[Rfam]
RNA sequence: GUAGUCGUUGUAAACAUCCUACACUCAGCUGUAAUCUGGAGGCUGGGGGGAGGGUGUUUGCUGUGACUGA
Numbered sequence: 001g002u003a004g005u006c007g008u009u010g011u012a013a014a015c016a017u018c019c020u021a022c023a024c025u026c027a028g029c030u031g032u033a034a035u036c037u038g039g040a041g042g043c044u045g046g047g048g049g050g051a052g053g054g055u056g057u058u059u060g061c062u063g064u065g066a067c068u069g070a
Stems, first nucleotide, its partner, number of pairs: 002069005008063001010061011022049001024047007
RNA: mir-30 microRNA precursor family
Organism: Carassius auratus